Rfam assigns this 130-nucleotide RNA sequence from Muraenolepis orangiensis to the family "Small nucleolar RNA SNORA13". Rfam describes the family as follows. ACA13 is a member of the H/ACA class of snoRNA that guide the sites of modification of uridines to pseudouridines. The family's consensus secondary structure was predicted with CMfinder. The family is grouped with related families in Rfam's "SNORA13 clan".
RNA sequence: UGCCUUUGUGUUGCUCUUUCAUUUUUCCCUAGUGAAAGGGGUGUCAAAAAAGGCAAACAUUAACUCUUGUAGUUGUCUGAGAAAUGGGUCGUCUCUAAGCCGUUCUCAAAGGCUAACCGCAAGGACAUGU
Number, nucleotide and partner (000 for none) at each position: 001u000002g054003c053004c052005u051006u050007u049008g000009u046010g045011u000012u043013g042014c041015u040016c038017u037018u036019u035020c034021a033022u032023u031024u000025u000026u000027c000028c000029c000030u000031a023032g022033u021034g020035a019036a018037a017038g016039g000040g015041g014042u013043g012044u000045c010046a009047a000048a000049a007050a006051a005052g004053g003054c002055a000056a000057a000058c000059a000060u000061u000062a000063a000064c000065u000066c123067u122068u121069g120070u000071a000072g117073u116074u115075g114076u000077c000078u000079g000080a000081g000082a000083a000084a000085u108086g107087g105088g104089u000090c000091g100092u099093c000094u000095c000096u000097a000098a000099g092100c091101c000102g000103u000104u088105c087106u000107c086108a085109a000110a000111g000112g000113c000114u075115a074116a073117c072118c000119g000120c069121a068122a067123g066124g000125a000126c000127a000128u000129g000130u000
Gene Ontology terms of the family: nucleolus and RNA processing. By type it is an H/ACA-box small nucleolar RNA.